[Rfam]
RNA sequence: GGAUGGCCAUACUGAUUAUUAAAACAUUAAGAUUCUUGCAGCCUUAAGUAGUGGGAUUUUAGUCCAUCAUAUAUCUAAACUGACUUGUCUUCACUCAGAGCACCAUGGGAUGGGUUGGCUGUCCAUUAGUGCCUUCUGAUUUUUGCGGAGUCAAACAAUU
Numbered sequence: 001g002g003a004u005g006g007c008c009a010u011a012c013u014g015a016u017u018a019u020u021a022a023a024a025c026a027u028u029a030a031g032a033u034u035c036u037u038g039c040a041g042c043c044u045u046a047a048g049u050a051g052u053g054g055g056a057u058u059u060u061a062g063u064c065c066a067u068c069a070u071a072u073a074u075c076u077a078a079a080c081u082g083a084c085u086u087g088u089c090u091u092c093a094c095u096c097a098g099a100g101c102a103c104c105a106u107g108g109g110a111u112g113g114g115u116u117g118g119c120u121g122u123c124c125a126u127u128a129g130u131g132c133c134u135u136c137u138g139a140u141u142u143u144u145g146c147g148g149a150g151u152c153a154a155a156c157a158a159u160u
Stems, first nucleotide, its partner, number of pairs: 001065004010056001012054003017050004082152005095139005100132004108124005

A member of the RNA family "Small nucleolar RNA SNORA79" from Pipistrellus kuhlii, 160 nucleotides long. Rfam describes the family as follows. ACA65 (SNORA79) is a member of the H/ACA class of snoRNAs that guide the sites of modification of uridines to pseudouridines. This snoRNA was identified by computational screening and its expression in mouse experimentally verified by Northern blot and primer extension analysis.